RNA sequence: GUACUUACCUGGCAGGGGAGAUACAAUGAUCAUGAAGGUGGUUUUCCCAAGGCGAGGCUUGUCUAUUGCACUCCAGAUGUGCUGAUCCCUACCAUGUCCUCAAUGUGGGAAACCUGACUGCAUAAUUUGUGGUUGGGAGGGACUGUGUUCACGCUCUCCCCUG
Numbered sequence: 001g002u003a004c005u006u007a008c009c010u011g012g013c014a015g016g017g018g019a020g021a022u023a024c025a026a027u028g029a030u031c032a033u034g035a036a037g038g039u040g041g042u043u044u045u046c047c048c049a050a051g052g053c054g055a056g057g058c059u060u061g062u063c064u065a066u067u068g069c070a071c072u073c074c075a076g077a078u079g080u081g082c083u084g085a086u087c088c089c090u091a092c093c094a095u096g097u098c099c100u101c102a103a104u105g106u107g108g109g110a111a112a113c114c115u116g117a118c119u120g121c122a123u124a125a126u127u128u129g130u131g132g133u134u135g136g137g138a139g140g141g142a143c144u145g146u147g148u149u150c151a152c153g154c155u156c157u158c159c160c161c162u163g
Stems, first nucleotide, its partner, number of pairs: 012121004016048006023042002026039002049090001051088002054086001056083003060079005092116001095112001097110001099108002137162001139160004145154003
Dot-bracket structure: ...........((((((((((.((.((..........)).))))))))(.((.(.(((.(((((..........))))).)))..))).).(..(.(.((......)).).)...).))))...............(.((((..(((....)))..)))).).
A member of the RNA family "U1 spliceosomal RNA" from Myotis lucifugus, 163 nucleotides long. NCBI's taxonomy places the organism under Eukaryota, Deuterostomia, Gnathostomata, Tetrapoda, Myotis. The family's RNA type in Rfam is spliceosomal small nuclear RNA. On this family, see Charenton et al., Science 2019: "Mechanism of 5' splice site transfer for human spliceosome activation".